RNA sequence: GUCGGUCUUCGGUAGUGGCUUUUCGGAUACGAGAUCCGGAGGGCUUCGAUCGAUGGCCGCC
Numbered sequence: 001g002u003c004g005g006u007c008u009u010c011g012g013u014a015g016u017g018g019c020u021u022u023u024c025g026g027a028u029a030c031g032a033g034a035u036c037c038g039g040a041g042g043g044c045u046u047c048g049a050u051c052g053a054u055g056g057c058c059g060c061c
Base pairs, nucleotide, nucleotide: 001061003059004058005057006056007055009053010052011051012050013049017045018044019043020042021041022040023039024038025037026036027035028034
RNA: Actino-pnp RNA